The family of this 119-nucleotide sequence from Macaca mulatta is "Small nucleolar RNA SNORA26".
Clan: SNORA27 clan.
Rfam's curators write: The snoRNA HBI-6 belong to the H/ACA family of snoRNAs, guiding the pseudouridylation of position U4522 if the 28S rRNA. HBI-6 is the human orthologue of mouse MBI-6 snoRNA.
NCBI's taxonomy places the organism under Eukaryota, Dipnotetrapodomorpha, Euarchontoglires, Haplorrhini, Macaca.
The family's RNA type in Rfam is H/ACA-box small nucleolar RNA.

[Rfam]
RNA sequence: GUGCCCUUUUAAGGUUGACACAGUGCCUUAAGAGCCUAACACAGAAGUAAGUAAGUUUCCAUAAAACCCAGAGACUAUAUUGCAAAAUUCCUCUUUGGAUCAUGUCUGGAGUUACAGCU
Numbered sequence: 001g002u003g004c005c006c007u008u009u010u011a012a013g014g015u016u017g018a019c020a021c022a023g024u025g026c027c028u029u030a031a032g033a034g035c036c037u038a039a040c041a042c043a044g045a046a047g048u049a050a051g052u053a054a055g056u057u058u059c060c061a062u063a064a065a066a067c068c069c070a071g072a073g074a075c076u077a078u079a080u081u082g083c084a085a086a087a088u089u090c091c092u093c094u095u096u097g098g099a100u101c102a103u104g105u106c107u108g109g110a111g112u113u114a115c116a117g118c119u
Base pairs, nucleotide, nucleotide: 006047007046008045009044010043014040015039016038017037021032055113057111058110059109060108061107068098069097070096071095072094073093074092077089080087081086